[Rfam]
RNA sequence: GACCACGGUUCGACGAAACCCAAGGCAUGGAGCGGGGGACCCAAGAGUUCCUCGGCGCUACGGCGCCUCGGGGUGAAGCCGCCACCGCGGCCGGGCACCUCUGCCCGAACCCGACAGCUGACCUCGUAGGCGUGGAGGACAAGCUCA
Numbered sequence: 001g002a003c004c005a006c007g008g009u010u011c012g013a014c015g016a017a018a019c020c021c022a023a024g025g026c027a028u029g030g031a032g033c034g035g036g037g038g039a040c041c042c043a044a045g046a047g048u049u050c051c052u053c054g055g056c057g058c059u060a061c062g063g064c065g066c067c068u069c070g071g072g073g074u075g076a077a078g079c080c081g082c083c084a085c086c087g088c089g090g091c092c093g094g095g096c097a098c099c100u101c102u103g104c105c106c107g108a109a110c111c112c113g114a115c116a117g118c119u120g121a122c123c124u125c126g127u128a129g130g131c132g133u134g135g136a137g138g139a140c141a142a143g144c145u146c147a
Base pairs, nucleotide, nucleotide: 011132012131014129019030020029032127033126034125035124036123037122042070071112072111073110079090080089081088082087093106094105095104096103
RNA: c-di-AMP riboswitch aptamer (ydaO/yuaA leader)
Organism: Actinoplanes philippinensis